[Rfam]
RNA sequence: UCUGUGCGGCAAUUUGUUCUCAAACCUGCGUGUUACUCGCCAAUCCUUUCAAUGGAUUUGUUUAGAGUGUCUAUCCAGGUUAAGAUAAAAAUUGAGAAUGUCUUAGCGCCCUAUUUCAAUAUUCCACAAAAAACUUACGGAUAUUGGAGGGCUGGUGAUUCCAAAAUUU
Numbered sequence: 001u002c003u004g005u006g007c008g009g010c011a012a013u014u015u016g017u018u019c020u021c022a023a024a025c026c027u028g029c030g031u032g033u034u035a036c037u038c039g040c041c042a043a044u045c046c047u048u049u050c051a052a053u054g055g056a057u058u059u060g061u062u063u064a065g066a067g068u069g070u071c072u073a074u075c076c077a078g079g080u081u082a083a084g085a086u087a088a089a090a091a092u093u094g095a096g097a098a099u100g101u102c103u104u105a106g107c108g109c110c111c112u113a114u115u116u117c118a119a120u121a122u123u124c125c126a127c128a129a130a131a132a133a134c135u136u137a138c139g140g141a142u143a144u145u146g147g148a149g150g151g152c153u154g155g156u157g158a159u160u161c162c163a164a165a166a167u168u169u
Base pairs, nucleotide, nucleotide: 023081024080025079026078027077028076035068036067037066038065043057044056045055046054092163096161097160098159099158112150114149115148116147117146118145119144120143121142122141123140124139

This 169-nucleotide RNA from Phycomyces blakesleeanus belongs to the Rfam family "small nucleolar RNA snR35". Rfam 15.1 lists 75 matches to the family in 66 species. The family's RNA type in Rfam is H/ACA-box small nucleolar RNA. A reference for the family is Li et al. (2005), "Identification and functional analysis of 20 Box H/ACA small nucleolar RNAs (snoRNAs) from Schizosaccharomyces pombe", J Biol Chem.